[Rfam]
RNA sequence: GCCAAACGGAAAGAGCUCCCCUUGAUCGACACGGUUUUCUUGAUGCUGCAUUCGUCGGUAUCGAGUUCGACAGUGCUGCGUUGAUGACGGUCCAGUUUCGAGAAAGACUAGUCCCGACCGGGCGGCUGGGUGAAUACGGGUGGGAGGACGGCAGGAUGCCUGACAUCGUCGGAAAGGGCCGAAAACCAAUUUCUUGCGAACUGAGCCGAGGAGUCUGCUGUAACCUGAUGCAAAACCGGGACCCAUCUUGAGUUGGUGUCAAAGCUUCGCGCUUGUCUAGUGGCGCGGACGGUCUGCAAGACGACUCGACUGCAGGAAGCUUGUGAGACUGGCCGCUUGUGUCCGAAGUAACGACUCUGUGGAUAGGGACAGGUUCAGAGAGCAGUCCCUGGUUGCUCUCUCUUCAGAAAUGACGGGAGAGUAACCCCCUACUUCUCGUGG
Numbered sequence: 001g002c003c004a005a006a007c008g009g010a011a012a013g014a015g016c017u018c019c020c021c022u023u024g025a026u027c028g029a030c031a032c033g034g035u036u037u038u039c040u041u042g043a044u045g046c047u048g049c050a051u052u053c054g055u056c057g058g059u060a061u062c063g064a065g066u067u068c069g070a071c072a073g074u075g076c077u078g079c080g081u082u083g084a085u086g087a088c089g090g091u092c093c094a095g096u097u098u099c100g101a102g103a104a105a106g107a108c109u110a111g112u113c114c115c116g117a118c119c120g121g122g123c124g125g126c127u128g129g130g131u132g133a134a135u136a137c138g139g140g141u142g143g144g145a146g147g148a149c150g151g152c153a154g155g156a157u158g159c160c161u162g163a164c165a166u167c168g169u170c171g172g173a174a175a176g177g178g179c180c181g182a183a184a185a186c187c188a189a190u191u192u193c194u195u196g197c198g199a200a201c202u203g204a205g206c207c208g209a210g211g212a213g214u215c216u217g218c219u220g221u222a223a224c225c226u227g228a229u230g231c232a233a234a235a236c237c238g239g240g241a242c243c244c245a246u247c248u249u250g251a252g253u254u255g256g257u258g259u260c261a262a263a264g265c266u267u268c269g270c271g272c273u274u275g276u277c278u279a280g281u282g283g284c285g286c287g288g289a290c291g292g293u294c295u296g297c298a299a300g301a302c303g304a305c306u307c308g309a310c311u312g313c314a315g316g317a318a319g320c321u322u323g324u325g326a327g328a329c330u331g332g333c334c335g336c337u338u339g340u341g342u343c344c345g346a347a348g349u350a351a352c353g354a355c356u357c358u359g360u361g362g363a364u365a366g367g368g369a370c371a372g373g374u375u376c377a378g379a380g381a382g383c384a385g386u387c388c389c390u391g392g393u394u395g396c397u398c399u400c401u402c403u404u405c406a407g408a409a410a411u412g413a414c415g416g417g418a419g420a421g422u423a424a425c426c427c428c429c430u431a432c433u434u435c436u437c438g439u440g441g
Stems, first nucleotide, its partner, number of pairs: 240260003243256003262274004
Source information: Shown here is a 441-nucleotide part of an RNA from Pleurostoma richardsiae, a member of the family "Ascomycota telomerase RNA". A search with the family's covariance model found it, with a score of 492 bits. NCBI's taxonomy places the organism under Eukaryota, Ascomycota, saccharomyceta, sordariomyceta, Pleurostoma. The literature on the family includes a 2013 paper in Nucleic Acids Res by Qi et al., "The common ancestral core of vertebrate and fungal telomerase RNAs".